Rfam assigns this 79-nucleotide RNA sequence from Thermoclostridium caenicola to the family "Glycine riboswitch aptamer". The base pairs follow the family's consensus structure.
[Rfam]
RNA sequence: AUGAAGGCCGAGGGAGAGAGGCUGCCAGGCAGCACACCGAAGGAGUCAUACUCUCAGGUAAAAAGACCUUGACCGGACG
Numbered sequence: 001a002u003g004a005a006g007g008c009c010g011a012g013g014g015a016g017a018g019a020g021g022c023u024g025c026c027a028g029g030c031a032g033c034a035c036a037c038c039g040a041a042g043g044a045g046u047c048a049u050a051c052u053c054u055c056a057g058g059u060a061a062a063a064a065g066a067c068c069u070u071g072a073c074c075g076g077a078c079g
Stems, first nucleotide, its partner, number of pairs: 006074002009071005021033003036059003039055002043053003
This family represents the bacterial glycine riboswitch.